[Rfam]
RNA sequence: CGAAGUGUGAGGAGUGGAAAACGCUUCUUCCGGGUCGAAACAAGGACAGACUCCGGUCGUGCGUUUCACUU
Numbered sequence: 001c002g003a004a005g006u007g008u009g010a011g012g013a014g015u016g017g018a019a020a021a022c023g024c025u026u027c028u029u030c031c032g033g034g035u036c037g038a039a040a041c042a043a044g045g046a047c048a049g050a051c052u053c054c055g056g057u058c059g060u061g062c063g064u065u066u067c068a069c070u071u
Stems, first nucleotide, its partner, number of pairs: 019066005027059001031055003034051003